The family of this 71-nucleotide sequence from Holospora undulata is "tRNA". The match comes from Rfam's covariance-model search (67 bits). The family's RNA type in Rfam is transfer RNA.

[Rfam]
RNA sequence: GCGGAUAUGGUUCAAUGGUAGAAUGAAAGCUUCCCAAGCUUUAGAUGAGGGUUCGAUUCUCUUUAUCCGCU
Numbered sequence: 001g002c003g004g005a006u007a008u009g010g011u012u013c014a015a016u017g018g019u020a021g022a023a024u025g026a027a028a029g030c031u032u033c034c035c036a037a038g039c040u041u042u043a044g045a046u047g048a049g050g051g052u053u054c055g056a057u058u059c060u061c062u063u064u065a066u067c068c069g070c071u
Stems, first nucleotide, its partner, number of pairs: 001070007010024004026042005047063005
Dot-bracket structure: (((((((..((((.......)))).(((((.......)))))....(((((.......)))))))))))).